[Rfam]
Rfam assigns this 70-nucleotide RNA sequence from Beta vulgaris to the family "Small nucleolar RNA Z105". It is annotated as a C/D-box small nucleolar RNA. The literature on the family includes a 2003 paper in Nucleic Acids Res by Chen et al., "The high diversity of snoRNAs in plants: identification and comparative study of 120 snoRNA genes from Oryza sativa".
RNA sequence: GCAUUAUGAUGAUGAACCUAGAAUUAAACCGAAAAAUCGUGAAUGGAAGAAAACCUCCUACUCAUUCUGA
Numbered sequence: 001g002c003a004u005u006a007u008g009a010u011g012a013u014g015a016a017c018c019u020a021g022a023a024u025u026a027a028a029c030c031g032a033a034a035a036a037u038c039g040u041g042a043a044u045g046g047a048a049g050a051a052a053a054c055c056u057c058c059u060a061c062u063c064a065u066u067c068u069g070a
Stems, first nucleotide, its partner, number of pairs: 006065004030041001

Its family is annotated with RNA processing and nucleolus in the Gene Ontology.